[Rfam]
RNA sequence: UUCUUAUUGGAUGGUGACGAUCACAUGUUAUAUUCUAAUUGGAUGUCAACUUCAUGAAAAUGAAAUGCAUUGUUGUCAUUGCCCAAUCAGAACAUGACACGUUACAGACAUCAUCC
Numbered sequence: 001u002u003c004u005u006a007u008u009g010g011a012u013g014g015u016g017a018c019g020a021u022c023a024c025a026u027g028u029u030a031u032a033u034u035c036u037a038a039u040u041g042g043a044u045g046u047c048a049a050c051u052u053c054a055u056g057a058a059a060a061u062g063a064a065a066u067g068c069a070u071u072g073u074u075g076u077c078a079u080u081g082c083c084c085a086a087u088c089a090g091a092a093c094a095u096g097a098c099a100c101g102u103u104a105c106a107g108a109c110a111u112c113a114u115c116c
Stems, first nucleotide, its partner, number of pairs: 021104001023102001026099001029096003033092004038087003
RNA: MIR1520 microRNA precursor family
Organism: Glycine max